Notes:
Guanidine-II riboswitch aptamer (mini-ykkC): a 53-nucleotide RNA sequence from Ixodes scapularis. Rfam describes the family as follows. Simpler in structure and has fewer highly conserved nucleotide positions than the ykkC-yxkD leader. Despite this each of its two stem-loop structures directly bind free guanidine. Therefore, mini-ykkC RNA motif represents a distinct class of guanidine-sensing RNAs. Its crystal structure was also determined. The family's consensus secondary structure is taken from published work. Rfam 15.1 lists 1,589 matches to the family in 1,229 species.
[Rfam]
RNA sequence: CCUUAAGGACGACCUCAAGGACGACUUCUAGGACGACCUCGAGGACGACCUCG
Numbered sequence: 001c002c003u004u005a006a007g008g009a010c011g012a013c014c015u016c017a018a019g020g021a022c023g024a025c026u027u028c029u030a031g032g033a034c035g036a037c038c039u040c041g042a043g044g045a046c047g048a049c050c051u052c053g
Stems, first nucleotide, its partner, number of pairs: 001020004006015003040053005
Dot-bracket structure: ((((.(((....))).))))...................(((((....)))))